[Rfam]
This 296-nucleotide RNA from Streptomyces nitrosporeus belongs to the Rfam family "5' ureB small RNA". Rfam 15.1 lists 4,812 matches to the family in 4,480 species. A reference for the family is Wen et al. (2013), "Helicobacter pylori 5'ureB-sRNA, a cis-encoded antisense small RNA, negatively regulates ureAB expression by transcription termination", J Bacteriol. It scores 69 bits against the family's covariance model. NCBI's taxonomy places the organism under Bacteria, Bacillati, Kitasatosporales, Streptomycetaceae, Streptomyces.
RNA sequence: GCCUGGUGGACCAGGGCGGGCGUGAUGAAGUGGACGUGCGCGUCGAUGGCGCCGGCGGUGAGGAACUUGCCGUUGCCGGCGAUGAUCUCGGUCUCCGGCCCGAUCACCAGGUCCGGGUGGACCCCGUCCAUCGUGUCGGGGUUCCCGGCCUUGCCGAUGCCGGUGAUCCGGCCGUCCCGGAUCCCGAUGUCGGCCUUGACGACACCCCAGUGGUCGAUGACGACGGCUCCGGUGAUCACGGUGUCGGGCGCGCCUUCCGCCCGGGUGGUGCGUGCCUGGCCCAUCGACUCGCGGAU
Numbered sequence: 001g002c003c004u005g006g007u008g009g010a011c012c013a014g015g016g017c018g019g020g021c022g023u024g025a026u027g028a029a030g031u032g033g034a035c036g037u038g039c040g041c042g043u044c045g046a047u048g049g050c051g052c053c054g055g056c057g058g059u060g061a062g063g064a065a066c067u068u069g070c071c072g073u074u075g076c077c078g079g080c081g082a083u084g085a086u087c088u089c090g091g092u093c094u095c096c097g098g099c100c101c102g103a104u105c106a107c108c109a110g111g112u113c114c115g116g117g118u119g120g121a122c123c124c125c126g127u128c129c130a131u132c133g134u135g136u137c138g139g140g141g142u143u144c145c146c147g148g149c150c151u152u153g154c155c156g157a158u159g160c161c162g163g164u165g166a167u168c169c170g171g172c173c174g175u176c177c178c179g180g181a182u183c184c185c186g187a188u189g190u191c192g193g194c195c196u197u198g199a200c201g202a203c204a205c206c207c208c209a210g211u212g213g214u215c216g217a218u219g220a221c222g223a224c225g226g227c228u229c230c231g232g233u234g235a236u237c238a239c240g241g242u243g244u245c246g247g248g249c250g251c252g253c254c255u256u257c258c259g260c261c262c263g264g265g266u267g268g269u270g271c272g273u274g275c276c277u278g279g280c281c282c283a284u285c286g287a288c289u290c291g292c293g294g295a296u
Base pairs, nucleotide, nucleotide: 001296003294006292007291008290009289012165013164016161018160019077020076021075022074031054032053033052035051036050039048040047058070059069060068078155079154082151084149086147090145091144094141095140096139097137098136099135106131110129111128113126115124116123171280172279173278174277178272179271181269182268183267184265185264192228193227194226195225197223207216231261232260241253242252243251